[Rfam]
RNA sequence: CCCAAGGCUACCGCCAUUGGGCUAUAUUAUACCAUGCCUUCGGCAUU
Numbered sequence: 001c002c003c004a005a006g007g008c009u010a011c012c013g014c015c016a017u018u019g020g021g022c023u024a025u026a027u028u029a030u031a032c033c034a035u036g037c038c039u040u041c042g043g044c045a046u047u
Stems, first nucleotide, its partner, number of pairs: 001021005006015003034046005
Shown here is a 47-nucleotide RNA sequence from Lentisphaera araneosa, a member of the family "Acido-Lenti-1 RNA". It scores 41 bits against the family's covariance model. The source organism's lineage runs through Bacteria, Pseudomonadati, Lentisphaeraceae, Lentisphaera and Lentisphaera araneosa.